RNA: SAM (S-adenosyl methionine) riboswitch aptamer
RNA sequence: GGUCAUGAGUGCCAGCAGACAGCCCCGGCUUGCUGGCCGGCAACCCUCCUACCGCGGUGGGGUGCCCCGGGUGAAGACCUGGUCCGGCACAUGUCGUGCCCGGACAAGCGCGGGCC
Numbered sequence: 001g002g003u004c005a006u007g008a009g010u011g012c013c014a015g016c017a018g019a020c021a022g023c024c025c026c027g028g029c030u031u032g033c034u035g036g037c038c039g040g041c042a043a044c045c046c047u048c049c050u051a052c053c054g055c056g057g058u059g060g061g062g063u064g065c066c067c068c069g070g071g072u073g074a075a076g077a078c079c080u081g082g083u084c085c086g087g088c089a090c091a092u093g094u095c096g097u098g099c100c101c102g103g104a105c106a107a108g109c110g111c112g113g114g115c116c
Stems, first nucleotide, its partner, number of pairs: 001079004009038001011037006021030002039066003044062003048057002082105006
Dot-bracket structure: ((((....(.((((((....((......)).)))))))(((..(((.((......))..))).))).........))))..((((((............))))))...........